The record is a 68-nucleotide sequence from Branchiostoma lanceolatum, which matches "bZIP non canonical Hac1/Xbp1 intron" in Rfam. From the family's description: bZIP intron RNA is a non-canonical intron that was first reported in HAC1 gene in yeast and XBP1 gene in Metazoa. By type it is a small RNA.
RNA sequence: GAUCCAGGUGCUCUGAAUCCGCAGCAUUCAGAUUUCAUGCACCUCUGCAGCAGGGGCAGAUCUGGAUC
Numbered sequence: 001g002a003u004c005c006a007g008g009u010g011c012u013c014u015g016a017a018u019c020c021g022c023a024g025c026a027u028u029c030a031g032a033u034u035u036c037a038u039g040c041a042c043c044u045c046u047g048c049a050g051c052a053g054g055g056g057c058a059g060a061u062c063u064g065g066a067u068c
Stems, first nucleotide, its partner, number of pairs: 001068001003065001005064005013031006040056001042054003